[Rfam]
RNA: Archaeal large subunit ribosomal RNA, nucleotides 1358 to 1712
Organism: Halolamina pelagica
RNA sequence: CAUAGUAGCAGCGAAAGUCGGGUGUGAACCCCGACGGCCAGAAGAGUAAGGGUUCCUUGGCACUGUCAAUCAGCCAAGGGUUAGUCGAUCCUAAGGUCCCUCGUAACUCGCAGGGAUCGAAAGGGCAGCUGGUUAAUAUUCCAGCACCAUCGUGCAGUGAAACCGACGCUUCCGGAACCAUCGAGCCGGGCUUUCGCCCGGUCGAAUCGAGGAAGCUCGUGGACGCCGUAACGGCAAGAAGCGAGCGAAACUCGAGAUAGUGUAAGUCGAUGUUACCAGGAGCCCGUGAAAAGGGAGCACGAUGUCCGUACCGAGAUCCGACACAGGUACUCUGCCAGCGCAAGGCACGGCCUGU
Numbered sequence: 001c002a003u004a005g006u007a008g009c010a011g012c013g014a015a016a017g018u019c020g021g022g023u024g025u026g027a028a029c030c031c032c033g034a035c036g037g038c039c040a041g042a043a044g045a046g047u048a049a050g051g052g053u054u055c056c057u058u059g060g061c062a063c064u065g066u067c068a069a070u071c072a073g074c075c076a077a078g079g080g081u082u083a084g085u086c087g088a089u090c091c092u093a094a095g096g097u098c099c100c101u102c103g104u105a106a107c108u109c110g111c112a113g114g115g116a117u118c119g120a121a122a123g124g125g126c127a128g129c130u131g132g133u134u135a136a137u138a139u140u141c142c143a144g145c146a147c148c149a150u151c152g153u154g155c156a157g158u159g160a161a162a163c164c165g166a167c168g169c170u171u172c173c174g175g176a177a178c179c180a181u182c183g184a185g186c187c188g189g190g191c192u193u194u195c196g197c198c199c200g201g202u203c204g205a206a207u208c209g210a211g212g213a214a215g216c217u218c219g220u221g222g223a224c225g226c227c228g229u230a231a232c233g234g235c236a237a238g239a240a241g242c243g244a245g246c247g248a249a250a251c252u253c254g255a256g257a258u259a260g261u262g263u264a265a266g267u268c269g270a271u272g273u274u275a276c277c278a279g280g281a282g283c284c285c286g287u288g289a290a291a292a293g294g295g296a297g298c299a300c301g302a303u304g305u306c307c308g309u310a311c312c313g314a315g316a317u318c319c320g321a322c323a324c325a326g327g328u329a330c331u332c333u334g335c336c337a338g339c340g341c342a343a344g345g346c347a348c349g350g351c352c353u354g355u
Stems, first nucleotide, its partner, number of pairs: 017035006036352004044332004050312002055079006064072002086308002090124002095118006102110002128145005148304008163294002168283005174277002179272005185202005207255004216245005225235003261266001318327002333347004